[Rfam]
RNA: Streptomyces-metH RNA
RNA sequence: GGCGUCCGCGUGCUGGACGGCCUGACGGCCGGGCCCGGGCACGGUUAGGCUGGCCCGGUGCGCCUUCCGCAGGGAAGCCGCAAAGCCGACAGCCGUCGCAUCCCAGGGAGCAUUCUCAUG
Numbered sequence: 001g002g003c004g005u006c007c008g009c010g011u012g013c014u015g016g017a018c019g020g021c022c023u024g025a026c027g028g029c030c031g032g033g034c035c036c037g038g039g040c041a042c043g044g045u046u047a048g049g050c051u052g053g054c055c056c057g058g059u060g061c062g063c064c065u066u067c068c069g070c071a072g073g074g075a076a077g078c079c080g081c082a083a084a085g086c087c088g089a090c091a092g093c094c095g096u097c098g099c100a101u102c103c104c105a106g107g108g109a110g111c112a113u114u115c116u117c118a119u120g
Base pairs, nucleotide, nucleotide: 059082060081061080062079064077065076066075067074085099086098088097089096090095